[Rfam]
A member of the RNA family "FMN riboswitch aptamer (RFN element)" from Clostridium vincentii, 114 nucleotides long. NCBI's taxonomy places the organism under Bacteria, Bacillati, Bacillota, Eubacteriales, Clostridium. It scores 106 bits against the family's covariance model.
RNA sequence: UAUAUUCUUCGGGGCAGGGUUAAUUUCCCUACUGGCGGUAUAGCCCGCGAGCCAUUGUGCUGAUUCGGUUUAACUCCGAAGCCAACAGUAAAGUCUGGAUAAAAGAAGAAAAUG
Numbered sequence: 001u002a003u004a005u006u007c008u009u010c011g012g013g014g015c016a017g018g019g020u021u022a023a024u025u026u027c028c029c030u031a032c033u034g035g036c037g038g039u040a041u042a043g044c045c046c047g048c049g050a051g052c053c054a055u056u057g058u059g060c061u062g063a064u065u066c067g068g069u070u071u072a073a074c075u076c077c078g079a080a081g082c083c084a085a086c087a088g089u090a091a092a093g094u095c096u097g098g099a100u101a102a103a104a105g106a107a108g109a110a111a112a113u114g
Stems, first nucleotide, its partner, number of pairs: 003112001005110006017029003031094002033084002035048004043082002051060002064080005086097003